Source information: Rfam assigns this 193-nucleotide sequence from Fusarium graminearum to the family "U2 spliceosomal RNA". Rfam links the family to the GO terms pre-mRNA branch point binding, mRNA branch site recognition and U2 snRNP. The sequence is in the family's curated seed alignment. It is annotated as a spliceosomal small nuclear RNA. Pairs were carried over by alignment from the consensus structure, which is taken from published work. For this family Rfam cites "The spliceosomal snRNAs of Caenorhabditis elegans" (Thomas et al., Nucleic Acids Res, 1990).

RNA sequence: UUAGCUCUCUUUGCCUUUUGGCUUAGAUCAAGUGUAGUAUCUGUUCUUUUCAGUUUAAUCUCUGAAAGGUCUCCAAGGAGACCAACAUUGAUUAUUCCUAUUUUUGGAUUCCGGGCAAUUUCCUCUGUGCUUGCACAUGAUUUUGCCCACUGUGUCCCUAGUAUUACACUGCCUCUAGGUGACGCGAACGCGC
Numbered sequence: 001u002u003a004g005c006u007c008u009c010u011u012u013g014c015c016u017u018u019u020g021g022c023u024u025a026g027a028u029c030a031a032g033u034g035u036a037g038u039a040u041c042u043g044u045u046c047u048u049u050u051c052a053g054u055u056u057a058a059u060c061u062c063u064g065a066a067a068g069g070u071c072u073c074c075a076a077g078g079a080g081a082c083c084a085a086c087a088u089u090g091a092u093u094a095u096u097c098c099u100a101u102u103u104u105u106g107g108a109u110u111c112c113g114g115g116c117a118a119u120u121u122c123c124u125c126u127g128u129g130c131u132u133g134c135a136c137a138u139g140a141u142u143u144u145g146c147c148c149a150c151u152g153u154g155u156c157c158c159u160a161g162u163a164u165u166a167c168a169c170u171g172c173c174u175c176u177a178g179g180u181g182a183c184g185c186g187a188a189c190g191c192g193c
Stems, first nucleotide, its partner, number of pairs: 008027003013022003048067006068083006113148006126137004151186006157179005